A member of the RNA family "carA ncRNA motif" from Polynucleobacter difficilis, 179 nucleotides long. carA ncRNA motif was reported as a Strong Riboswitch Candidate CarA ncRNA motif was located upstream of carA gene which codes for the small subunit of carbamoyl phosphate synthase, which is an enzyme that catalyses the first committed step in pyrimidine and arginine biosynthesis. It is proposed as a possible cis-regulatory element. The organism belongs to Polynucleobacter, within Bacteria. For this family Rfam cites "Comprehensive discovery of novel structured noncoding RNAs in 26 bacterial genomes" (Brewer et al., RNA Biol, 2021). The family's consensus secondary structure is taken from published work.
[Rfam]
RNA sequence: UAAGGCUGCGGCUGGUUUGGCGGGAAGCGGACCUGCGAACUGGUAUUAUUGUUGGGUUCGUAACUCAAUAAAUUACCCUAGCGCUUAAAAACACUCACCUCCCGCAACCACUUCCGGGUAGGCUAUUUGGGGGUGUUGAGCGUUGGAUGGCAGCAGGGAUUGGAGAUGGUUUGUCACCC
Numbered sequence: 001u002a003a004g005g006c007u008g009c010g011g012c013u014g015g016u017u018u019g020g021c022g023g024g025a026a027g028c029g030g031a032c033c034u035g036c037g038a039a040c041u042g043g044u045a046u047u048a049u050u051g052u053u054g055g056g057u058u059c060g061u062a063a064c065u066c067a068a069u070a071a072a073u074u075a076c077c078c079u080a081g082c083g084c085u086u087a088a089a090a091a092c093a094c095u096c097a098c099c100u101c102c103c104g105c106a107a108c109c110a111c112u113u114c115c116g117g118g119u120a121g122g123c124u125a126u127u128u129g130g131g132g133g134u135g136u137u138g139a140g141c142g143u144u145g146g147a148u149g150g151c152a153g154c155a156g157g158g159a160u161u162g163g164a165g166a167u168g169g170u171u172u173g174u175c176a177c178c179c
Base pairs, nucleotide, nucleotide: 009022010021012019040055041054042053043052044051045050076158077157078156079155083154084153085152086150090144091143092142094140095139096138097137101133102132103131105129106128107127111121112120